[Rfam]
RNA sequence: UGUUUAUUGUUGGCAAGAUUAUGGCGAAGCUGAAUAAACCACAAAGUGUUUCAGCUUCCCCUGAUACUGCCAACAAACAUGGC
Numbered sequence: 001u002g003u004u005u006a007u008u009g010u011u012g013g014c015a016a017g018a019u020u021a022u023g024g025c026g027a028a029g030c031u032g033a034a035u036a037a038a039c040c041a042c043a044a045a046g047u048g049u050u051u052c053a054g055c056u057u058c059c060c061c062u063g064a065u066a067c068u069g070c071c072a073a074c075a076a077a078c079a080u081g082g083c
Stems, first nucleotide, its partner, number of pairs: 001081003005077001007076009018065004023061002026058009
Background:
mir-31_2 microRNA precursor family: an 83-nucleotide RNA from Schistosoma mansoni. Rfam's curators put it in the seed alignment.